[Rfam]
RNA sequence: CCAGCGAAAUGGCAAAUUCAUUCGAAAGAUGAAGACGCAAAGCCACGGGCCUAAGGUAGGAAUAGACUACGGCAGCCGGGUUACCGAA
Numbered sequence: 001c002c003a004g005c006g007a008a009a010u011g012g013c014a015a016a017u018u019c020a021u022u023c024g025a026a027a028g029a030u031g032a033a034g035a036c037g038c039a040a041a042g043c044c045a046c047g048g049g050c051c052u053a054a055g056g057u058a059g060g061a062a063u064a065g066a067c068u069a070c071g072g073c074a075g076c077c078g079g080g081u082u083a084c085c086g087a088a
Base pairs, nucleotide, nucleotide: 012038013037017033018032019031020030022029023028041082042081043080044079046078047077048076049073050072051071056067057066
Rfam assigns this 88-nucleotide RNA from Ammoniphilus sp. CFH 90114 to the family "c-di-GMP-I riboswitch aptamer". Taxonomically the source falls in Ammoniphilus (Bacteria, Bacillati, Bacillota, Bacilli). A search with the family's covariance model found it, with a score of 80 bits.